Shown here is a 78-nucleotide RNA sequence from Schistosoma mansoni, a member of the family "mir-3492 microRNA precursor family". The sequence is in the family's curated seed alignment. The family has 2 seed sequences and 21,496 matches in Rfam 15.1. Rfam links the family to the GO terms miRNA-mediated post-transcriptional gene silencing and RISC complex. The base pairs follow the family's consensus structure, which was predicted with RNAalifold.

[Rfam]
RNA sequence: AGCCUUCCGUAUCCGUGCUGAGAUUUCGUCACAUACCAAACCACAAGGGCUGAUGAAACUCGCAAGAUAAGUGAAGCU
Numbered sequence: 001a002g003c004c005u006u007c008c009g010u011a012u013c014c015g016u017g018c019u020g021a022g023a024u025u026u027c028g029u030c031a032c033a034u035a036c037c038a039a040a041c042c043a044c045a046a047g048g049g050c051u052g053a054u055g056a057a058a059c060u061c062g063c064a065a066g067a068u069a070a071g072u073g074a075a076g077c078u
Base pairs, nucleotide, nucleotide: 002077003076005074006073008071010069011068012067013066016064017063019062020061021060022059024058025057026056027055028054029053030052